A member of the RNA family "Antisense RNA which regulates isiA expression" from Vasconcelosia minhoensis, 178 nucleotides long.
For this family Rfam cites "An internal antisense RNA regulates expression of the photosynthesis gene isiA" (Duhring et al., Proc Natl Acad Sci U S A, 2006).
The base pairs follow the family's consensus structure, which was predicted with PFOLD.
The match comes from Rfam's covariance-model search (92 bits).
Rfam 15.1 lists 3,397 matches to the family in 659 species.
RNA sequence: UAUAGUCCCAGAUGGCAGCCGGGCUAAGCGUCGGAGAGGCAACUACCCGUACCGAGUCUGAAUAGGCAUCGUAGAGCCCCCCAAAGUACUGCGCUUUAGCAACGAGCAGCAGCGCUCCUAAGGCCAAAAAGAUGAGGUGAUGCCCUAGAAUAAAGCCCAGCUUUUUAGCAUCUUGCCA
Numbered sequence: 001u002a003u004a005g006u007c008c009c010a011g012a013u014g015g016c017a018g019c020c021g022g023g024c025u026a027a028g029c030g031u032c033g034g035a036g037a038g039g040c041a042a043c044u045a046c047c048c049g050u051a052c053c054g055a056g057u058c059u060g061a062a063u064a065g066g067c068a069u070c071g072u073a074g075a076g077c078c079c080c081c082c083a084a085a086g087u088a089c090u091g092c093g094c095u096u097u098a099g100c101a102a103c104g105a106g107c108a109g110c111a112g113c114g115c116u117c118c119u120a121a122g123g124c125c126a127a128a129a130a131g132a133u134g135a136g137g138u139g140a141u142g143c144c145c146u147a148g149a150a151u152a153a154a155g156c157c158c159a160g161c162u163u164u165u166u167a168g169c170a171u172c173u174u175g176c177c178a
Stems, first nucleotide, its partner, number of pairs: 137174001139172003145168004